[Rfam]
RNA sequence: AUCCAGGGGACAGGAAACGGGGGACCCACACGGUCUCCCAGGGAGCGGAAGUUCCCAGGAGGCACCCGGGCACGAGCACCAGCAACGGCCCUAGGGGUGAAGCCGAAUCGCUCCCAGCGGGAGCGUCGCGGCCGGGCUACCUCUUCAGCCCGAACCCGACAGCUGACCUCGUA
Numbered sequence: 001a002u003c004c005a006g007g008g009g010a011c012a013g014g015a016a017a018c019g020g021g022g023g024a025c026c027c028a029c030a031c032g033g034u035c036u037c038c039c040a041g042g043g044a045g046c047g048g049a050a051g052u053u054c055c056c057a058g059g060a061g062g063c064a065c066c067c068g069g070g071c072a073c074g075a076g077c078a079c080c081a082g083c084a085a086c087g088g089c090c091c092u093a094g095g096g097g098u099g100a101a102g103c104c105g106a107a108u109c110g111c112u113c114c115c116a117g118c119g120g121g122a123g124c125g126u127c128g129c130g131g132c133c134g135g136g137c138u139a140c141c142u143c144u145u146c147a148g149c150c151c152g153a154a155c156c157c158g159a160c161a162g163c164u165g166a167c168c169u170c171g172u173a
Stems, first nucleotide, its partner, number of pairs: 002016001004014001017172006027094001095157003103131003134151004
A member of the RNA family "c-di-AMP riboswitch aptamer (ydaO/yuaA leader)" from Rhodococcus sp. CX, 173 nucleotides long. Its family is annotated with regulation of gene expression and cyclic-di-AMP binding in the Gene Ontology. This family represents a conserved RNA structure found upstream of the ydaO and yuaA genes in Bacillus subtilis and related genes in other bacteria. The base pairs follow the family's consensus structure.